[Rfam]
RNA sequence: CCAACGGCCCUCUUUAGGGCCACAAAUGUGAUAAUAUCCCAUGUAA
Numbered sequence: 001c002c003a004a005c006g007g008c009c010c011u012c013u014u015u016a017g018g019g020c021c022a023c024a025a026a027u028g029u030g031a032u033a034a035u036a037u038c039c040c041a042u043g044u045a046a
Stems, first nucleotide, its partner, number of pairs: 006021006
Rfam assigns this 46-nucleotide sequence from Caenorhabditis elegans to the family "Histone 3' UTR stem-loop". The family's consensus secondary structure is taken from published work. The mRNAs of metazoan histone genes lack a poly-A tail. 3' end processing occurs at a site between a highly conserved stem-loop (modelled by this family) and a purine rich region around 20 nts downstream (the histone downstream element, or HDE). It is annotated as a cis-regulatory element.